Rfam assigns this 111-nucleotide RNA from Mesobacillus zeae to the family "SAM riboswitch aptamer (S box leader)".
From the family's description: The SAM riboswitch is found upstream of a number of genes which code for proteins involved in methionine or cysteine biosynthesis in Gram-positive bacteria.
The family's consensus secondary structure is taken from published work.
The organism belongs to Mesobacillus, within Bacteria.
The match comes from Rfam's covariance-model search (92 bits).
RNA sequence: UUCUUAUCCAGAGAGGCAGAGGGUCCUGGCCCGAUGAAGCUUCAGCAACCUUCAACGAUUUCGUUGAAAAGGUGCUAAUUCCAGCAAGUUCUUAAACUUGGCAGAUAAGGA
Numbered sequence: 001u002u003c004u005u006a007u008c009c010a011g012a013g014a015g016g017c018a019g020a021g022g023g024u025c026c027u028g029g030c031c032c033g034a035u036g037a038a039g040c041u042u043c044a045g046c047a048a049c050c051u052u053c054a055a056c057g058a059u060u061u062c063g064u065u066g067a068a069a070a071g072g073u074g075c076u077a078a079u080u081c082c083a084g085c086a087a088g089u090u091c092u093u094a095a096a097c098u099u100g101g102c103a104g105a106u107a108a109g110g111a
Base pairs, nucleotide, nucleotide: 001111002110003109004108005107006106007105008104013043014042015041016040017039021032022031023030026084027083028082029081044076045075046074047073049072050071051068052067053066054065080103085100086099087098088097089096090095